[Rfam]
RNA sequence: AUACCUUUCUCGGCCUUUUGGCUAAGAUCAAGUGUAGUAUCUGUUCUGAUCAGUUUAAUAUCUGCUCCGUGCUUCAUCGGACCAUUAAAAAAAAAAUAAAAAAAAUCAUCUUCGAGCUGACCGGGCCCAGUUAAUUCACCAAUUCAUUGGUACUCAACUGAAUCCAUCUGGAUUCGAACUGAG
Number, nucleotide and partner (000 for none) at each position: 001a000002u000003a000004c000005c000006u000007u000008u027009c026010u025011c000012g023013g022014c021015c020016u000017u000018u000019u000020g015021g014022c013023u012024a000025a010026g009027a008028u000029c000030a000031a000032g000033u000034g000035u000036a000037g000038u000039a000040u000041c000042u000043g000044u000045u000046c000047u000048g067049a066050u000051c064052a063053g062054u000055u000056u000057a000058a000059u000060a000061u000062c053063u052064g051065c000066u049067c048068c000069g085070u084071g083072c000073u081074u080075c079076a000077u000078c000079g075080g074081a073082c000083c071084a070085u069086u000087a000088a000089a000090a000091a000092a000093a000094a000095a000096a000097u000098a000099a000100a000101a000102a000103a000104a000105a000106u000107c000108a000109u000110c000111u000112u000113c000114g137115a136116g135117c000118u133119g132120a131121c130122c000123g000124g000125g000126c000127c000128c000129a000130g121131u120132u119133a118134a000135u116136u115137c114138a000139c000140c176141a000142a174143u000144u172145c171146a000147u000148u166149g165150g164151u000152a000153c000154u000155c000156a000157a000158c000159u000160g000161a000162a000163u000164c150165c149166a148167u000168c000169u000170g000171g145172a144173u000174u142175c000176g140177a000178a000179c000180u000181g000182a000183g000
RNA: U2 spliceosomal RNA
Organism: Chara braunii